[Rfam]
RNA sequence: GGAAAUCACAUUAAACGACGCACACAUAUCAAUACCUGUCCCAGGGUGCCGGCAAGGCCGGUUUGGGGCACGGGAUAUGUGGAGGACUAAC
Numbered sequence: 001g002g003a004a005a006u007c008a009c010a011u012u013a014a015a016c017g018a019c020g021c022a023c024a025c026a027u028a029u030c031a032a033u034a035c036c037u038g039u040c041c042c043a044g045g046g047u048g049c050c051g052g053c054a055a056g057g058c059c060g061g062u063u064u065g066g067g068g069c070a071c072g073g074g075a076u077a078u079g080u081g082g083a084g085g086a087c088u089a090a091c
Stems, first nucleotide, its partner, number of pairs: 023081008035072001037070007048062005
RNA: t44 RNA
Organism: Parahaliea mediterranea